Shown here is a 45-nucleotide sequence from Actinobacillus delphinicola, a member of the family "PreQ1 (pre queuosine) riboswitch aptamer". Pairs were carried over by alignment from the consensus structure. The match comes from Rfam's covariance-model search (47 bits). Gene Ontology term of the family: queuosine biosynthetic process. NCBI's taxonomy places the organism under Bacteria, Pseudomonadati, Pseudomonadota, Gammaproteobacteria, Actinobacillus. Rfam's curators write: This family is a bacterial riboswitch that binds to the metabolite preQ1, an intermediate in the biosynthesis of the modified nucleoside queuosine from GTP. One example of this riboswitch is located in the leader of the Bacillus subtilis ykvJKLM (queCDEF) operon which encodes four genes necessary for queuosine production. PreQ1 binding to the riboswitch aptamer is thought to induce premature transcription termination within the leader to down-regulate expression of these genes. On this family, see Schroeder et al., Nat Commun 2022: "A small RNA that cooperatively senses two stacked metabolites in one pocket for gene control".

[Rfam]
RNA sequence: AACCGUGUGGUUCGCAACCCUCCCACUUUAAAAAACUAGGAAAAU
Numbered sequence: 001a002a003c004c005g006u007g008u009g010g011u012u013c014g015c016a017a018c019c020c021u022c023c024c025a026c027u028u029u030a031a032a033a034a035a036c037u038a039g040g041a042a043a044a045u
Base pairs, nucleotide, nucleotide: 007026008025009024010023016037